This 76-nucleotide RNA sequence from Cellulomonas aerilata belongs to the Rfam family "c-di-GMP-I riboswitch aptamer".
[Rfam]
RNA sequence: CAGCGACAACGGCAAACCCGGUGCGAGCCGGGGACGCACAGCCACGGGACCCUCGACGGUCAGCCGAGCCACCGAA
Numbered sequence: 001c002a003g004c005g006a007c008a009a010c011g012g013c014a015a016a017c018c019c020g021g022u023g024c025g026a027g028c029c030g031g032g033g034a035c036g037c038a039c040a041g042c043c044a045c046g047g048g049a050c051c052c053u054c055g056a057c058g059g060u061c062a063g064c065c066g067a068g069c070c071a072c073c074g075a076a
Stems, first nucleotide, its partner, number of pairs: 012037002017032006041069002045066003048061004
Rfam 15.1 lists 5,092 matches to the family in 1,772 species. It scores 48 bits against the family's covariance model.